[Rfam]
RNA sequence: AUGUCCUGCUCGUGAUCGUCUUCUCACCCGUCACCGGCAGGCAGCCAGAGGAGAACCCCCGCGAGGACGUGACUCGCGGGGGUUCUCG
Number, nucleotide and partner (000 for none) at each position: 001a000002u043003g042004u000005c041006c040007u039008g038009c037010u036011c000012g034013u033014g032015a031016u000017c000018g028019u000020c000021u000022u000023c000024u000025c000026a000027c000028c018029c000030g000031u015032c014033a013034c012035c000036g010037g009038c008039a007040g006041g005042c003043a002044g000045c000046c000047a000048g000049a000050g000051g087052a086053g085054a084055a083056c082057c081058c080059c079060c078061g077062c076063g075064a074065g073066g000067a000068c000069g000070u000071g000072a000073c065074u064075c063076g062077c061078g060079g059080g058081g057082g056083u055084u054085c053086u052087c051088g000
Shown here is an 88-nucleotide RNA from Streptomyces scabiei, a member of the family "sodF sRNA". For this family Rfam cites "Inverse regulation of Fe- and Ni-containing SOD genes by a Fur family regulator Nur through small RNA processed from 3'UTR of the sodF mRNA" (Kim et al., Nucleic Acids Res, 2014). Rfam's curators put it in the seed alignment.